[Rfam]
About this RNA: The family of this 111-nucleotide RNA from Phtheirospermum japonicum is "Small nucleolar RNA Z107/R87".
Nucleotides: 111
Base pairs, nucleotide, nucleotide: 001111002110003109004108005107006106
Number, partner (000 for none) and nucleotide at each position: 001111a002110a003109u004108c005107g006106c007000a008000g009000u010000g011000a012000u013000g014000a015000c016000u017000c018000g019000g020000a021000a022000a023000u024000u025000c026000a027000a028000g029000c030000u031000c032000a033000a034000c035000a036000g037000a038000c039000c040000u041000g042000a043000u044000u045000g046000c047000a048000g049000g050000u051000u052000u053000c054000u055000a056000u057000c058000u059000u060000u061000a062000a063000a064000c065000a066000g067000a068000g069000a070000u071000u072000g073000c074000u075000u076000a077000c078000u079000u080000g081000c082000g083000u084000g085000u086000c087000g088000a089000g090000u091000a092000u093000c094000c095000c096000g097000c098000u099000g100000a101000a102000c103000u104000g105000a106006g107005c108004g109003a110002u111001u
Record summary:
The literature on the family includes a 2001 paper in J Mol Biol by Barneche et al., "Identification of 66 box C/D snoRNAs in Arabidopsis thaliana: extensive gene duplications generated multiple isoforms predicting new ribosomal RNA 2'-O-methylation sites".